Description
Rfam assigns this 139-nucleotide RNA from Moellerella wisconsensis to the family "Molybdenum/Tungsten riboswitch aptamer (Moco RNA motif)". On this family, see Weinberg et al., Nucleic Acids Res 2007: "Identification of 22 candidate structured RNAs in bacteria using the CMfinder comparative genomics pipeline".
RNA sequence: AUGCAAUAAAAACUCCUAGCCUGUGUGUCUAAGUUUGUGAUUACAAAUAUGAUGCUCUGGCCGUGACCGAUGAGUCACCAGGGUGCAUGAUAGAAAUGUCGGCAUCUCCCGUAUUUGGAAAGGUGUAAUAUGCAACAAC
Numbered sequence: 001a002u003g004c005a006a007u008a009a010a011a012a013c014u015c016c017u018a019g020c021c022u023g024u025g026u027g028u029c030u031a032a033g034u035u036u037g038u039g040a041u042u043a044c045a046a047a048u049a050u051g052a053u054g055c056u057c058u059g060g061c062c063g064u065g066a067c068c069g070a071u072g073a074g075u076c077a078c079c080a081g082g083g084u085g086c087a088u089g090a091u092a093g094a095a096a097u098g099u100c101g102g103c104a105u106c107u108c109c110c111g112u113a114u115u116u117g118g119a120a121a122g123g124u125g126u127a128a129u130a131u132g133c134a135a136c137a138a139c
Stems, first nucleotide, its partner, number of pairs: 003133002012126002015123002019061003023057001025055005033048006063078005081107006088101005108118002